[Rfam]
Small nucleolar RNA SNORA4: a 142-nucleotide RNA from Trichechus manatus. Its Rfam clan is "SNORA4 clan". Its family is annotated with RNA processing and nucleolus in the Gene Ontology. Rfam 15.1 lists 290 matches to the family in 136 species. Rfam describes the family as follows. ACA4 is a member of the H/ACA class of snoRNA that guide the sites of modification of uridines to pseudouridines.
RNA sequence: CUACCAAAAGUUUAUUUUGGGGGCAAGGUUUUUUUUAGUAACCUUUACCGAUUCAGGCUAUUUGGGAGAAUAAAGACCAGACCACACUCCACAGUGGGCUAUACCACUUAGUAUAGUUCACUACUCUUUGGUGGCCUACAUU
Numbered sequence: 001c002u003a004c005c006a007a008a009a010g011u012u013u014a015u016u017u018u019g020g021g022g023g024c025a026a027g028g029u030u031u032u033u034u035u036u037a038g039u040a041a042c043c044u045u046u047a048c049c050g051a052u053u054c055a056g057g058c059u060a061u062u063u064g065g066g067a068g069a070a071u072a073a074a075g076a077c078c079a080g081a082c083c084a085c086a087c088u089c090c091a092c093a094g095u096g097g098g099c100u101a102u103a104c105c106a107c108u109u110a111g112u113a114u115a116g117u118u119c120a121c122u123a124c125u126c127u128u129u130g131g132u133g134g135c136c137u138a139c140a141u142u
Stems, first nucleotide, its partner, number of pairs: 004065005012060001015057003019053002023049001026046001027043004079137002082134004093122012